The record is an 80-nucleotide RNA sequence from Ditylenchus dipsaci, which matches "Small nucleolar RNA SNORD24" in Rfam. NCBI's taxonomy places the organism under Eukaryota, Metazoa, Anguinidae, Anguininae, Ditylenchus.
RNA sequence: GUCAAAUGAUGACUAUUAUUUGCUACUCCUAACAUGUCCAUGGCGAUAACAAUUAAUCCACCAAGAUUACUUCUGAUGAC
Numbered sequence: 001g002u003c004a005a006a007u008g009a010u011g012a013c014u015a016u017u018a019u020u021u022g023c024u025a026c027u028c029c030u031a032a033c034a035u036g037u038c039c040a041u042g043g044c045g046a047u048a049a050c051a052a053u054u055a056a057u058c059c060a061c062c063a064a065g066a067u068u069a070c071u072u073c074u075g076a077u078g079a080c
Base pairs, nucleotide, nucleotide: 001080002079003078004077
The literature on the family includes a 1995 paper in Nucleic Acids Res by Qu et al., "U24, a novel intron-encoded small nucleolar RNA with two 12 nt long, phylogenetically conserved complementarities to 28S rRNA". It scores 42 bits against the family's covariance model. Rfam links the family to the GO terms nucleolus and RNA processing. Rfam 15.1 lists 2,843 matches to the family in 1,188 species.